Record summary:
Rfam assigns this 77-nucleotide sequence from Saccoglossus kowalevskii to the family "mir-2012 microRNA precursor family". The source organism's lineage runs through Eukaryota, Opisthokonta, Eumetazoa, Hemichordata and Saccoglossus. The sequence is in the family's curated seed alignment. Gene Ontology terms of the family: miRNA-mediated post-transcriptional gene silencing and RISC complex.
RNA sequence: AUAUUACUUGGUAGUACUGGCAUAUGGACAUUGGUGAUUUAACUCAAUGUUCAUAUUUCAGUAUUUCCAAGUGAGAU
Numbered sequence: 001a002u003a004u005u006a007c008u009u010g011g012u013a014g015u016a017c018u019g020g021c022a023u024a025u026g027g028a029c030a031u032u033g034g035u036g037a038u039u040u041a042a043c044u045c046a047a048u049g050u051u052c053a054u055a056u057u058u059c060a061g062u063a064u065u066u067c068c069a070a071g072u073g074a075g076a077u
Stems, first nucleotide, its partner, number of pairs: 001077002004074008013065008022056012